[Rfam]
RNA sequence: AUAAACAGAAGAGGAGCGAAAGCCAGGUUAUUUAGUGAUAGGAGCGGGAUCCGUUGACCACUAAUGAGGGGGACUUUUGCCGAGGAAAAUAAUUUUCCGUGAAAUUAUUUUUCGGUUUUUUGGGCUGAAUCCCUAAAAACUGUCACCGAGAAUCAAAUAUUGUUUCAACAUGUUUGAUUAGGUGGAGAGCUUCUGGCUGA
Numbered sequence: 001a002u003a004a005a006c007a008g009a010a011g012a013g014g015a016g017c018g019a020a021a022g023c024c025a026g027g028u029u030a031u032u033u034a035g036u037g038a039u040a041g042g043a044g045c046g047g048g049a050u051c052c053g054u055u056g057a058c059c060a061c062u063a064a065u066g067a068g069g070g071g072g073a074c075u076u077u078u079g080c081c082g083a084g085g086a087a088a089a090u091a092a093u094u095u096u097c098c099g100u101g102a103a104a105u106u107a108u109u110u111u112u113c114g115g116u117u118u119u120u121u122g123g124g125c126u127g128a129a130u131c132c133c134u135a136a137a138a139a140c141u142g143u144c145a146c147c148g149a150g151a152a153u154c155a156a157a158u159a160u161u162g163u164u165u166c167a168a169c170a171u172g173u174u175u176g177a178u179u180a181g182g183u184g185g186a187g188a189g190c191u192u193c194u195g196g197c198u199g200a
Base pairs, nucleotide, nucleotide: 006195007194008193009192010191011190016080017079018078019077020076021075022074024072032064033063034062035061036060037059084113085112086111087110088109089108090107091106092105093104094103095102114141115140116139117138118137119136120135122133123132124131143185144184145183146182147181149179
RNA: Lysine riboswitch aptamer